RNA sequence: UCUAGCCCCUGGACCCUGACUCCCAGCCGUUCUUCCCCUGACACACUUCCCCGGUGCCAGGUUGGGAAUGGAUGGGAAUCAGGACCGAGGGUCUGGCCCGG
Dot-bracket structure: .........(.(..((.((.(((((.((((((((..((((.(((.........))).))))..)))))))).))))).)).))..).).............

Rfam assigns this 101-nucleotide RNA from Cryobacterium frigoriphilum to the family "mraW RNA". Rfam classes the family as a cis-regulatory element. The base pairs follow the family's consensus structure, which is taken from published work.